[Rfam]
Overview
A member of the RNA family "tRNA" from Candidatus Phytoplasma solani, 71 nucleotides long. Pairs were carried over by alignment from the consensus structure, which is taken from published work. The family's RNA type in Rfam is transfer RNA. The organism belongs to 16SrXII (Stolbur group), within Bacteria. Rfam links the family to the GO term triplet codon-amino acid adaptor activity.

RNA sequence: GGCCCUGUAGCCAAGUGGUAAGGCAUGGCUCUGCAAAAGCUUGAUCAUCGGUUCAAAUCCGUUCAGGGCCU
Number, nucleotide and partner (000 for none) at each position: 001g070002g069003c068004c067005c066006u065007g064008u000009a000010g024011c023012c022013a000014a000015g000016u000017g000018g000019u000020a000021a000022g012023g011024c010025a000026u000027g041028g040029c039030u038031c000032u000033g000034c000035a000036a000037a000038a030039g029040c028041u027042u000043g000044a000045u000046c000047a063048u000049c061050g060051g059052u000053u000054c000055a000056a000057a000058u000059c051060c050061g049062u000063u047064c007065a006066g005067g004068g003069c002070c001071u000